[Rfam]
RNA sequence: AAGUAUUGUCAUCGUUUAAGCGCCUGUGAUAACUCUGUAGACAUUAAUUCGACAGAUGAAGAGUGUCAGACCCGUAUAUGAAAGCCCUGUUCCAGGUAGUUAGCCUAGUCGUGAUUAGCGUGGUGGUGAUUAUUAUCCCACCGUGCGGGGCUGCACUUGGACGAAGAAAGGCUUAGAAAACAAGUCUGAAACUGAAGAGAACCCCCGCACCGUCAGGUCCGGGGGUUUUUUUAUGGCCGGUGAAAAGUGAAGCGAGGACAGAAGAUGAACAACAGCAUAAAAUUCUGCGCUUCCCGCAGUAA
Numbered sequence: 001a002a003g004u005a006u007u008g009u010c011a012u013c014g015u016u017u018a019a020g021c022g023c024c025u026g027u028g029a030u031a032a033c034u035c036u037g038u039a040g041a042c043a044u045u046a047a048u049u050c051g052a053c054a055g056a057u058g059a060a061g062a063g064u065g066u067c068a069g070a071c072c073c074g075u076a077u078a079u080g081a082a083a084g085c086c087c088u089g090u091u092c093c094a095g096g097u098a099g100u101u102a103g104c105c106u107a108g109u110c111g112u113g114a115u116u117a118g119c120g121u122g123g124u125g126g127u128g129a130u131u132a133u134u135a136u137c138c139c140a141c142c143g144u145g146c147g148g149g150g151c152u153g154c155a156c157u158u159g160g161a162c163g164a165a166g167a168a169a170g171g172c173u174u175a176g177a178a179a180a181c182a183a184g185u186c187u188g189a190a191a192c193u194g195a196a197g198a199g200a201a202c203c204c205c206c207g208c209a210c211c212g213u214c215a216g217g218u219c220c221g222g223g224g225g226u227u228u229u230u231u232u233a234u235g236g237c238c239g240g241u242g243a244a245a246a247g248u249g250a251a252g253c254g255a256g257g258a259c260a261g262a263a264g265a266u267g268a269a270c271a272a273c274a275g276c277a278u279a280a281a282a283u284u285c286u287g288c289g290c291u292u293c294c295c296g297c298a299g300u301a302a
Stems, first nucleotide, its partner, number of pairs: 006032007015022001037075002040072001047064002049059002087257002090254001092252001095248001100243003103238001105236003110120003122142005128137003143162002146159004164193001170187002173184002196231012209218003259287005265278003
RNA: Soft rot Enterobacteriaceae Rev 39 5'UTR
Organism: Chimaeribacter arupi